[Rfam]
RNA: mir-9261 microRNA precursor family
RNA sequence: AACAAUUUGUCCCGCGUCCCACGGCGUUUUAAAAAUCCUAUUUUGAAGAAAAUGGGACUUUUUUUAAAACGCCGUGGGAUGCGGGACAAAUUGUUAA
Numbered sequence: 001a002a003c004a005a006u007u008u009g010u011c012c013c014g015c016g017u018c019c020c021a022c023g024g025c026g027u028u029u030u031a032a033a034a035a036u037c038c039u040a041u042u043u044u045g046a047a048g049a050a051a052a053u054g055g056g057a058c059u060u061u062u063u064u065u066a067a068a069a070c071g072c073c074g075u076g077g078g079a080u081g082c083g084g085g086a087c088a089a090a091u092u093g094u095u096a097a
Base pairs, nucleotide, nucleotide: 001095002094003093004092005091006090007089008088009087010086011085012084013083014082015081016080017079018078019077020076021075022074023073024072025071026070027069028068029067030066031065032064033063034062035061